[Rfam]
RNA sequence: GUCCACGGAGGUCCCCAUCCGCCAGCGAGUUUCGCCCGCGGAUGCGGCUUGC
Numbered sequence: 001g002u003c004c005a006c007g008g009a010g011g012u013c014c015c016c017a018u019c020c021g022c023c024a025g026c027g028a029g030u031u032u033c034g035c036c037c038g039c040g041g042a043u044g045c046g047g048c049u050u051g052c
Base pairs, nucleotide, nucleotide: 016044017043018042019041020040021039022038025035026034027033028032
Shown here is a 52-nucleotide RNA from Aureimonas sp. Leaf454, a member of the family "ffh sRNA".